[Rfam]
RNA sequence: CCGACCGCCAAAAUGGCGUCAGCCUGGUCAGGGAGCGCCGAGCUUCUUGGCGCUCCCUCAUAUCUAUGUUGCUCUACGGACGAUGUAGCUAUGAGAA
Numbered sequence: 001c002c003g004a005c006c007g008c009c010a011a012a013a014u015g016g017c018g019u020c021a022g023c024c025u026g027g028u029c030a031g032g033g034a035g036c037g038c039c040g041a042g043c044u045u046c047u048u049g050g051c052g053c054u055c056c057c058u059c060a061u062a063u064c065u066a067u068g069u070u071g072c073u074c075u076a077c078g079g080a081c082g083a084u085g086u087a088g089c090u091a092u093g094a095g096a097a
Stems, first nucleotide, its partner, number of pairs: 001022001003020003008016002032056010057095006064088007073080002